The record is a 437-nucleotide RNA sequence from Acidovorax sp. CF316, which matches "Bacterial RNase P class A" in Rfam. Taxonomically the source falls in Acidovorax (Bacteria, Pseudomonadati, Betaproteobacteria, Burkholderiales). Rfam classes the family as a ribozyme. Rfam describes the family as follows. Ribonuclease P (RNase P) is a ubiquitous endoribonuclease, found in archaea, bacteria and eukarya as well as chloroplasts and mitochondria.
[Rfam]
RNA sequence: GAAGCGCGCCAGACCGCCGCUGGUGCAAUCUGGGAAACCAGGCACUGGAGGAACGUCCGGACUGCACAGGACAGCGUAGCAGCUAACGGCUGCCCACCGUGAGGUGAGGAUCAGAGCAACAGAGACGAGUUCGGACACGGGACCACCAGGGGUGUUCUGUGGGACGCCAGCGCAAGCUGGCUGCGGAUGGCGCAAGCCAGACGGUUCCCGGCGCAAGCCGGGAAAUCCCACAGCCACCUCGGGCGCGUUCCGCGCCCGAGGUGAAACGGGCAAUCUCUACGCGCAGCAAUACCAAGUAGGCCAACGUUGAUGUGGUUCCGCAGAGUUGGCGGGUAGGUAGCAUCGAGCCGGUGUGGCGACACCCGGCCCAGAGUAAUGGCGGUCACGCCGCGGGCAACCGCGGUGCACAGAAUCCGGCUUAUCGGCGCGCUUCACAC
Dot-bracket structure: ((((((((((((((((((.(((((((...............)))))))....[.[.[[[[[((((...[[...((((((((((.....)))))(((((....)))).)((...((((..............((...........................................................................................................................)..).........))..)))))))))))))...((((......((((((.....((((.]].))))..)))))).....)))).......(((((.(((....))))))))..........)))))))............................]]]]]].].).))))))))))....